Rfam assigns this 137-nucleotide RNA from Staphylococcus saccharolyticus to the family "FMN riboswitch aptamer (RFN element)". It scores 112 bits against the family's covariance model.

Nucleotides: 137
Stems, first nucleotide, its partner, number of pairs: 004134007017029003031117002033106002035052004047104002056081005086102005108120003
Number, partner (000 for none) and nucleotide at each position: 001000u002000c003000a004134u005133u006132c007131u008130u009129u010128c011000g012000g013000g014000g015000c016000a017029g018028g019027g020000u021000g022000u023000a024000a025000u026000u027019c028018c029017c030000a031117a032116c033106c034105g035052g036051c037050a038049g039000u040000a041000a042000a043000u044000c045000a046000a047104g048103c049038c050037u051036g052035u053000g054000a055000c056081c057080u058079g059078c060077u061000a062000a063000c064000g065000u066000a067000a068000u069000u070000u071000u072000g073000u074000g075000u076000u077060a078059g079058u080057g081056g082000c083000u084000g085000a086102u087101c088100u089099a090098g091000u092000g093000a094000a095000a096000u097000u098090c099089u100088a101087g102086a103048g104047c105034c106033g107000a108120c109119a110118g111000u112000u113000a114000a115000a116032g117031u118110c119109u120108g121000g122000a123000u124000g125000g126000g127000a128010g129009a130008a131007a132006g133005a134004a135000g136000g137000u